[Rfam]
Rfam assigns this 145-nucleotide RNA sequence from Ictidomys tridecemlineatus to the family "Small nucleolar RNA U109". The organism belongs to Ictidomys, within Eukaryota.
RNA sequence: UUGCAUGUUGGGAAUUCUUUCUGUGGUUCUUGCUCCAUUAUGAGCAGGACUUCAGUAUCUGCAAUAUGCUAUAUUGAAUAAAGGCAUUUUCAGGGCUUCUGGCCUUUCUAUGAAGAUUAAGUGAUAGUCUAUUUCUCCUACAUAA
Numbered sequence: 001u002u003g004c005a006u007g008u009u010g011g012g013a014a015u016u017c018u019u020u021c022u023g024u025g026g027u028u029c030u031u032g033c034u035c036c037a038u039u040a041u042g043a044g045c046a047g048g049a050c051u052u053c054a055g056u057a058u059c060u061g062c063a064a065u066a067u068g069c070u071a072u073a074u075u076g077a078a079u080a081a082a083g084g085c086a087u088u089u090u091c092a093g094g095g096c097u098u099c100u101g102g103c104c105u106u107u108c109u110a111u112g113a114a115g116a117u118u119a120a121g122u123g124a125u126a127g128u129c130u131a132u133u134u135c136u137c138c139u140a141c142a143u144a145a
Stems, first nucleotide, its partner, number of pairs: 003069006026051001028049006083138002095125001099121001100119003104115003
The base pairs follow the family's consensus structure, which was predicted with WAR. By type it is an H/ACA-box small nucleolar RNA. Its family is annotated with RNA processing and nucleolus in the Gene Ontology.